Overview
The record is a 104-nucleotide RNA sequence from Chitinimonas taiwanensis, which matches "Vibrio RNA AS9" in Rfam. The literature on the family includes a 2009 paper in Nucleic Acids Res by Liu et al., "Experimental discovery of sRNAs in Vibrio cholerae by direct cloning, 5S/tRNA depletion and parallel sequencing". Rfam classes the family as an antisense RNA. NCBI's taxonomy places the organism under Bacteria, Betaproteobacteria, Neisseriales, Chitinimonas, Chitinimonas taiwanensis.

RNA sequence: CUGCUUGCAGCGCGCUUCGGUCAGCGUCAGGCAGAUCAGGCCGCGCGCAUGCUUGGCCAUGAAGUUGAUUGCUUCCGGCGUCACAUGCUCGGCAGCCAUGACCA
Numbered sequence: 001c002u003g004c005u006u007g008c009a010g011c012g013c014g015c016u017u018c019g020g021u022c023a024g025c026g027u028c029a030g031g032c033a034g035a036u037c038a039g040g041c042c043g044c045g046c047g048c049a050u051g052c053u054u055g056g057c058c059a060u061g062a063a064g065u066u067g068a069u070u071g072c073u074u075c076c077g078g079c080g081u082c083a084c085a086u087g088c089u090c091g092g093c094a095g096c097c098a099u100g101a102c103c104a
Stems, first nucleotide, its partner, number of pairs: 003058001005056003010027004035050002040046002066104002069101002071096002075092003078088003
Rfam's curators write: Identified by direct cloning an parallel sequencing experiments with 5S/tRNA depletion.